Shown here is a 57-nucleotide RNA sequence from Rhodococcoides trifolii, a member of the family "F6 TB sRNA". The literature on the family includes a 2009 paper in Mol Microbiol by Arnvig and Young, "Identification of small RNAs in Mycobacterium tuberculosis". Rfam classes the family as a small RNA. Lineage of the source: Bacteria > Actinomycetes > Mycobacteriales > Nocardiaceae > Rhodococcoides. The family's consensus secondary structure is taken from published work.

[Rfam]
RNA sequence: GUCGAGUCCGUGCGGCACUGUCAGACCCCCGACCCGGCAGCGCCGCACGGACUCGCC
Number, nucleotide and partner (000 for none) at each position: 001g000002u000003c055004g054005a053006g000007u051008c050009c049010g048011u047012g046013c045014g044015g043016c042017a000018c040019u039020g038021u037022c036023a000024g000025a000026c000027c000028c000029c000030c000031g000032a000033c000034c000035c000036g022037g021038c020039a019040g018041c000042g016043c015044c014045g013046c012047a011048c010049g009050g008051a007052c000053u005054c004055g003056c000057c000